[Rfam]
The record is a 222-nucleotide RNA sequence, which matches "FuFi-1 RNA" in Rfam. The family's RNA type in Rfam is small RNA. Rfam's curators put it in the seed alignment.
RNA sequence: UGCGAAUGCUAAGGCUAUCACAGCGGAGCCAAACCGCUUAAGUGACGCAGUAAAUCAAGAAAUCGGUAGUCCUUUUGCUGAUGUCAGAUGUUGAGACGAAGUUCACUGGUUCCUCACCAGUUAAAAAAGCGAGAGAAACCUUUGUACUCACUUCUGACUGCAAUUUACACAGGUAAAAAAAUUGGGAACAAGUACCGAUGAAAGGACCGUCGGUGCUUGUUU
Numbered sequence: 001u002g003c004g005a006a007u008g009c010u011a012a013g014g015c016u017a018u019c020a021c022a023g024c025g026g027a028g029c030c031a032a033a034c035c036g037c038u039u040a041a042g043u044g045a046c047g048c049a050g051u052a053a054a055u056c057a058a059g060a061a062a063u064c065g066g067u068a069g070u071c072c073u074u075u076u077g078c079u080g081a082u083g084u085c086a087g088a089u090g091u092u093g094a095g096a097c098g099a100a101g102u103u104c105a106c107u108g109g110u111u112c113c114u115c116a117c118c119a120g121u122u123a124a125a126a127a128a129g130c131g132a133g134a135g136a137a138a139c140c141u142u143u144g145u146a147c148u149c150a151c152u153u154c155u156g157a158c159u160g161c162a163a164u165u166u167a168c169a170c171a172g173g174u175a176a177a178a179a180a181a182u183u184g185g186g187a188a189c190a191a192g193u194a195c196c197g198a199u200g201a202a203a204g205g206a207c208c209g210u211c212g213g214u215g216c217u218u219g220u221u222u
Base pairs, nucleotide, nucleotide: 001049002048003047004046022038023037024036025035026034029185030184031183032182050168051167052166053165054164055163062082063081064080065079066078067077068076069207070206071205072204073203074202075201083158084157085156086155087154088153090151188220189219190218191217192216193215194214195213196212197211198210199209200208